[Rfam]
RNA sequence: CUGCCGUGAUGAUUUUUUUAGGACACCUUCGGACUUAACUGUGAAGAGUUAAGCAUGGUUUCUGAGCAGC
Numbered sequence: 001c002u003g004c005c006g007u008g009a010u011g012a013u014u015u016u017u018u019u020a021g022g023a024c025a026c027c028u029u030c031g032g033a034c035u036u037a038a039c040u041g042u043g044a045a046g047a048g049u050u051a052a053g054c055a056u057g058g059u060u061u062c063u064g065a066g067c068a069g070c
Stems, first nucleotide, its partner, number of pairs: 001069004
This 70-nucleotide sequence from Probosciger aterrimus belongs to the Rfam family "Small nucleolar RNA SNORD58". Gene Ontology terms of the family: nucleolus and RNA processing. Taxonomically the source falls in Probosciger (Eukaryota, Gnathostomata, Archosauria, Neoaves). It is annotated as a C/D-box small nucleolar RNA. Rfam 15.1 lists 2,484 matches to the family in 680 species.